[Rfam]
RNA sequence: AGAGUCGGUUAGGCAAUCGCUCUUUGUUUGACAAAGGGAGGAAAGUCCGGGCUCCAUAGGGCAGGGUGCCAGGUAAUGCCUGGGAGGUGCGAACCUACGGAAAGUGCCACAGAAAAUAUACCGCCUGUAUUAUUAAUAAUAUAAUUAUUUCUAUUACAGGUAAGGGUGAAAUGGUGCGGUAAGAGCGCACCGCGCGAUUGGUAACAGUCGUGGCAGGGAAAACCCCACCUGGAGCAAGACCAAAUAGGAAUCCACUUGGUUUACCAUAACGUGCGGCCCGUACGGGAUUCGGGUAGGUUGCUUGAGGCGCAUGGUGACGUGCGUCCCAGAUGAAUGAUUGCUCGCGACAGAACCCGGCUUAUCGACCGACUCUUUUU
Numbered sequence: 001a002g003a004g005u006c007g008g009u010u011a012g013g014c015a016a017u018c019g020c021u022c023u024u025u026g027u028u029u030g031a032c033a034a035a036g037g038g039a040g041g042a043a044a045g046u047c048c049g050g051g052c053u054c055c056a057u058a059g060g061g062c063a064g065g066g067u068g069c070c071a072g073g074u075a076a077u078g079c080c081u082g083g084g085a086g087g088u089g090c091g092a093a094c095c096u097a098c099g100g101a102a103a104g105u106g107c108c109a110c111a112g113a114a115a116a117u118a119u120a121c122c123g124c125c126u127g128u129a130u131u132a133u134u135a136a137u138a139a140u141a142u143a144a145u146u147a148u149u150u151c152u153a154u155u156a157c158a159g160g161u162a163a164g165g166g167u168g169a170a171a172u173g174g175u176g177c178g179g180u181a182a183g184a185g186c187g188c189a190c191c192g193c194g195c196g197a198u199u200g201g202u203a204a205c206a207g208u209c210g211u212g213g214c215a216g217g218g219a220a221a222a223c224c225c226c227a228c229c230u231g232g233a234g235c236a237a238g239a240c241c242a243a244a245u246a247g248g249a250a251u252c253c254a255c256u257u258g259g260u261u262u263a264c265c266a267u268a269a270c271g272u273g274c275g276g277c278c279c280g281u282a283c284g285g286g287a288u289u290c291g292g293g294u295a296g297g298u299u300g301c302u303u304g305a306g307g308c309g310c311a312u313g314g315u316g317a318c319g320u321g322c323g324u325c326c327c328a329g330a331u332g333a334a335u336g337a338u339u340g341c342u343c344g345c346g347a348c349a350g351a352a353c354c355c356g357g358c359u360u361a362u363c364g365a366c367c368g369a370c371u372c373u374u375u376u377u
Base pairs, nucleotide, nucleotide: 001373002372003371004370005369006368007367008366009365010364011362012342013341014340015339016338017337018336020038021037022036023035024034025033026032027031043360044359045358047357048356049355050354051353052234053233054232055231059279060278061277062276064230065229066228067227068226069083070082071081072080073079084098085096086095087094088093099225100224104223105222107218108217121165122164123161124160125159126158127157128156129155131153173191174190175189176188177187178186192214193212194211195210196209197208198207199206200205238299239298240297241296248290249289250288251287252286253285270284271283272282273281274280306325307324308323309322310321311320312319313318
Notes: The record is a 377-nucleotide RNA sequence from Legionella sp. km772, which matches "Bacterial RNase P class A" in Rfam. By type it is a ribozyme. Its family is annotated with tRNA processing, ribonuclease P activity and dimeric ribonuclease P complex in the Gene Ontology.